[Rfam]
RNA sequence: GCUCGAGGACGGCCUCGGGCUCGAUCCAUCUCGGGCUCGAGGACGGCCUCC
Numbered sequence: 001g002c003u004c005g006a007g008g009a010c011g012g013c014c015u016c017g018g019g020c021u022c023g024a025u026c027c028a029u030c031u032c033g034g035g036c037u038c039g040a041g042g043a044c045g046g047c048c049u050c051c
Stems, first nucleotide, its partner, number of pairs: 001020008039050004